[Rfam]
RNA sequence: AACCACACUAUCAAUGAAUGGAUUCAGCCGUGAUAUGACGUGGGUGUUCCACUUAGGACAAGAACAUGGCAUCCUAUUACCAGCCAUCGCAUGAAAUUAAUAGGAUGCCACGUCCUCAUCCUAGGUGAAACAACCAUGUCAUCUCACAUGUGAAUCUGUUCAUUGAUAGUUUGGUU
Number, nucleotide and partner (000 for none) at each position: 001a176002a175003c174004c173005a172006c000007a170008c000009u168010a167011u166012c165013a164014a163015u162016g000017a160018a159019u158020g000021g156022a155023u154024u153025c152026a151027g000028c000029c000030g147031u146032g145033a144034u000035a142036u141037g140038a139039c138040g000041u136042g135043g134044g000045u132046g131047u130048u129049c000050c000051a126052c125053u000054u123055a122056g000057g120058a119059c000060a000061a000062g000063a000064a113065c112066a000067u000068g000069g108070c107071a106072u105073c104074c103075u102076a101077u100078u099079a098080c000081c000082a000083g000084c000085c000086a097087u096088c000089g000090c000091a000092u000093g000094a000095a000096a087097u086098u079099a078100a077101u076102a075103g074104g073105a072106u071107g070108c069109c000110a000111c000112g065113u064114c000115c000116u000117c000118a000119u058120c057121c000122u055123a054124g000125g052126u051127g000128a000129a048130a047131c046132a045133a000134c043135c042136a041137u000138g039139u038140c037141a036142u035143c000144u033145c032146a031147c030148a000149u000150g000151u026152g025153a024154a023155u022156c021157u000158g019159u018160u017161c000162a015163u014164u013165g012166a011167u010168a009169g000170u007171u000172u005173g004174g003175u002176u001
RNA: MIR807 microRNA precursor family